[Rfam]
RNA sequence: UUGGACGCUUAACAUUUCAGGGUCCAGCAACAAAAAACCCCGACUAAAUCGGGGUUUUUUGUUAUCUGAAUCUUCCUUUUUAGGAAAUUCAGAUAGUUGCUUGGUUUUAGUAUUGGGCUCUGAGCCCUUUUUUU
Numbered sequence: 001u002u003g004g005a006c007g008c009u010u011a012a013c014a015u016u017u018c019a020g021g022g023u024c025c026a027g028c029a030a031c032a033a034a035a036a037a038c039c040c041c042g043a044c045u046a047a048a049u050c051g052g053g054g055u056u057u058u059u060u061g062u063u064a065u066c067u068g069a070a071u072c073u074u075c076c077u078u079u080u081u082a083g084g085a086a087a088u089u090c091a092g093a094u095a096g097u098u099g100c101u102u103g104g105u106u107u108u109a110g111u112a113u114u115g116g117g118c119u120c121u122g123a124g125c126c127c128u129u130u131u132u133u134u
Stems, first nucleotide, its partner, number of pairs: 034058009115127004
Dot-bracket structure: .................................(((((((((.......)))))))))........................................................((((.....)))).......